EGFOA RNA: a 135-nucleotide sequence from Peribacillus deserti. The base pairs follow the family's consensus structure, which is taken from published work. Rfam classes the family as a small RNA.

RNA sequence: CUAUCCCCAGAGUAUUUGAAAAAAUACACAUCCCGUCCCUGUAAGCUUUUGCUUAGGUAGGGCAUGAUAGAACUUGUGAUAAGUUGAAUGGUAAAGCAGGACCUGGGCAUUUGUUAUUUAUAACACUAUCAUGCA
Number, nucleotide and partner (000 for none) at each position: 001c000002u000003a000004u000005c000006c107007c106008c105009a104010g103011a000012g000013u000014a000015u000016u000017u000018g000019a000020a000021a000022a000023a000024a000025u000026a000027c000028a000029c000030a000031u000032c000033c000034c000035g102036u101037c000038c100039c099040u098041g097042u055043a054044a053045g052046c051047u000048u000049u000050u000051g046052c045053u044054u043055a042056g000057g000058u000059a000060g000061g000062g134063c133064a132065u131066g130067a129068u128069a000070g000071a085072a084073c083074u082075u000076g000077u000078g000079a000080u000081a000082a074083g073084u072085u071086g112087a111088a110089u109090g108091g000092u000093a000094a000095a000096g000097c041098a040099g039100g038101a036102c035103c010104u009105g008106g007107g006108c090109a089110u088111u087112u086113g000114u000115u000116a000117u000118u000119u000120a000121u000122a000123a000124c000125a000126c000127u000128a068129u067130c066131a065132u064133g063134c062135a000